[Rfam]
RNA sequence: GAAGGUGGGCCCUUCGGUAUCGGAAUACAGGUUCCGGUACCAAACCACCGCCAAGCUGCUUGGAUUAAAUGUCCCGGUGGUGAGCGUUGUCGGAAAAGGCAUCCGGAGGUGUCAGGU
Dot-bracket structure: (((((.....)))))((((((.((((....)))).))))))....(.((..(((((.(((.((((.....)))).))).)).....)))..))....((((((....))))))..).
Rfam assigns this 117-nucleotide RNA from Parapedobacter indicus to the family "Group II catalytic intron D1-D4-2".
Taxonomically the source falls in Parapedobacter (Bacteria, Bacteroidota, Sphingobacteriia, Sphingobacteriales).
Group II introns are found in rRNA, tRNA and mRNA of organelles in fungi, plants and protists, and also in mRNA in bacteria.
The family has 144 seed sequences and 1,231 matches in Rfam 15.1.
The pairing is the family consensus, mapped onto this sequence.
Gene Ontology term of the family: Group II intron splicing.